[Rfam]
RNA: Ribosomal protein L13 leader
RNA sequence: GGUAUUGUUUGCCCCACGAUAAGCCCCGGAAUCUUAUUUGGUGUCGAACAAACACAGG
Numbered sequence: 001g002g003u004a005u006u007g008u009u010u011g012c013c014c015c016a017c018g019a020u021a022a023g024c025c026c027c028g029g030a031a032u033c034u035u036a037u038u039u040g041g042u043g044u045c046g047a048a049c050a051a052a053c054a055c056a057g058g
Base pairs, nucleotide, nucleotide: 006054007053008052009051010050011049015041018038019037020036021035022034023033